[Rfam]
RNA sequence: UGCGCAGCGCGUGUUUGAGGAUCACUUGCGGGAAGGAGACGCCCUUGAGCCGCGCGGUGCGGAUGUAUUGCUGGGUCAUCACCUCGGUCAUGGAGGCGCGGGUCAUGCGGGCGAUAUAGCCGAUGCCGUAGAGCGCAAUGGUCAUCACCGGCAGGGCGAAGUUCCAGAAGGUGAUCUGG
Numbered sequence: 001u002g003c004g005c006a007g008c009g010c011g012u013g014u015u016u017g018a019g020g021a022u023c024a025c026u027u028g029c030g031g032g033a034a035g036g037a038g039a040c041g042c043c044c045u046u047g048a049g050c051c052g053c054g055c056g057g058u059g060c061g062g063a064u065g066u067a068u069u070g071c072u073g074g075g076u077c078a079u080c081a082c083c084u085c086g087g088u089c090a091u092g093g094a095g096g097c098g099c100g101g102g103u104c105a106u107g108c109g110g111g112c113g114a115u116a117u118a119g120c121c122g123a124u125g126c127c128g129u130a131g132a133g134c135g136c137a138a139u140g141g142u143c144a145u146c147a148c149c150g151g152c153a154g155g156g157c158g159a160a161g162u163u164c165c166a167g168a169a170g171g172u173g174a175u176c177u178g179g
Stems, first nucleotide, its partner, number of pairs: 005140002009136004014131002016128002019126001021124001029122003040111001042109001046105003050101005055075001059071004082096004145179003151172002154165003
RNA: Ruegeria cis52 sRNA
Organism: Pseudorhodobacter sp. MZDSW-24AT